[Rfam]
Nucleotides: 065
Stems, first nucleotide, its partner, number of pairs: 010025004016056006033046004
Number, partner (000 for none) and nucleotide at each position: 001000u002000u003000u004000g005000g006000u007000a008000c009000u010025g011024g012023c013022a014000a015000u016056g017055a018054u019053g020052u021051c022013u023012g024011c025010c026000u027000u028000g029000a030000a031000c032000c033046g034045c035044c036043c037000u038000u039000a040000a041000c042000u043036g044035g045034g046033c047000u048000g049000a050000u051021g052020g053019c054018g055017u056016c057000u058000a059000c060000a061000g062000u063000u064000a065000c

Rfam assigns this 65-nucleotide sequence from Flavobacterium beibuense to the family "Fluoride riboswitch aptamer (crcB RNA motif)". The organism belongs to Flavobacterium beibuense, within Bacteria. Its family is annotated with positive regulation of gene expression and response to fluoride in the Gene Ontology.